The record is a 54-nucleotide RNA sequence from Salvelinus namaycush, which matches "UnaL2 LINE 3' element" in Rfam. The family's consensus secondary structure is taken from published work. The match comes from Rfam's covariance-model search (71 bits). Rfam's curators write: The eel long interspersed element (LINE) UnaL2 and its partner short interspersed element (SINE) share a conserved 3' tail containing a stem-loop that is critical for their retrotransposition. Presumably, the first step of retrotransposition is the recognition of their 3' tails by UnaL2-encoded reverse transcriptase. Lineage of the source: Eukaryota > Craniata > Actinopteri > Salmoninae > Salvelinus.

RNA sequence: AUUAAUACAUUUUGUAAGUCGCUCUGGAUAAGAGCGUCUGCUAAAUGACUUAAA
Numbered sequence: 001a002u003u004a005a006u007a008c009a010u011u012u013u014g015u016a017a018g019u020c021g022c023u024c025u026g027g028a029u030a031a032g033a034g035c036g037u038c039u040g041c042u043a044a045a046u047g048a049c050u051u052a053a054a
Stems, first nucleotide, its partner, number of pairs: 013043001014041003020036006
Dot-bracket structure: ............((((...((((((.....))))))..))).)...........